This 128-nucleotide sequence from Salmonella enterica belongs to the Rfam family "EFASI RNA".
[Rfam]
RNA sequence: CCGGAUGGAUACCGAGGGGGCAUGAUGCCCCGGAGAAUCCCCUGCUCACGCAGGCAGCCUGUACCGCGUACAGUCUGAAACUCCCUAUACCUCAACAAACUGCCACUCCGGCGUGAAGGUAUCGUUCU
Numbered sequence: 001c002c003g004g005a006u007g008g009a010u011a012c013c014g015a016g017g018g019g020g021c022a023u024g025a026u027g028c029c030c031c032g033g034a035g036a037a038u039c040c041c042c043u044g045c046u047c048a049c050g051c052a053g054g055c056a057g058c059c060u061g062u063a064c065c066g067c068g069u070a071c072a073g074u075c076u077g078a079a080a081c082u083c084c085c086u087a088u089a090c091c092u093c094a095a096c097a098a099a100c101u102g103c104c105a106c107u108c109c110g111g112c113g114u115g116a117a118g119g120u121a122u123c124g125u126u127c128u
Stems, first nucleotide, its partner, number of pairs: 003127003008123006018030004032084004041054005055077003060072005
The source organism's lineage runs through Bacteria, Pseudomonadati, Enterobacterales, Salmonella enterica subsp. enterica and Salmonella enterica subsp. enterica serovar Nchanga.